[Rfam]
RNA: Selenocysteine insertion sequence 1
Organism: Platysternon megacephalum
RNA sequence: GUUGCAGAUAUGAUGAUACUGUACCAAAUCCUCAGGGAAGUACAGUUCCUGAUGUUUGCAUC
Numbered sequence: 001g002u003u004g005c006a007g008a009u010a011u012g013a014u015g016a017u018a019c020u021g022u023a024c025c026a027a028a029u030c031c032u033c034a035g036g037g038a039a040g041u042a043c044a045g046u047u048c049c050u051g052a053u054g055u056u057u058g059c060a061u062c
Stems, first nucleotide, its partner, number of pairs: 001062001003060003015049001018046007029038003